[Rfam]
RNA sequence: AAUGACUGUCCAUACAUUCUUUUUUCGUUUCUUCUUCUUUAGCCCCUGUUAAUCGGGAGGUUGCUUCGCUCUGAGAAAAGAAACGAAAGACGAAUGCAGAAAAAGCCUCCCUCUGGGAGGCUUUUUUAUU
Numbered sequence: 001a002a003u004g005a006c007u008g009u010c011c012a013u014a015c016a017u018u019c020u021u022u023u024u025u026c027g028u029u030u031c032u033u034c035u036u037c038u039u040u041a042g043c044c045c046c047u048g049u050u051a052a053u054c055g056g057g058a059g060g061u062u063g064c065u066u067c068g069c070u071c072u073g074a075g076a077a078a079a080g081a082a083a084c085g086a087a088a089g090a091c092g093a094a095u096g097c098a099g100a101a102a103a104a105g106c107c108u109c110c111c112u113c114u115g116g117g118a119g120g121c122u123u124u125u126u127u128a129u130u
Base pairs, nucleotide, nucleotide: 016095017094018093019092021090022089023088024087025086026085027084028083029082030081031080032079033078036076037075038074039073043057044056045055059070060069061068063067102124103123104122105121106120107119108118109117110116111115
RNA: Phenylalanine leader peptide
Organism: Plesiomonas shigelloides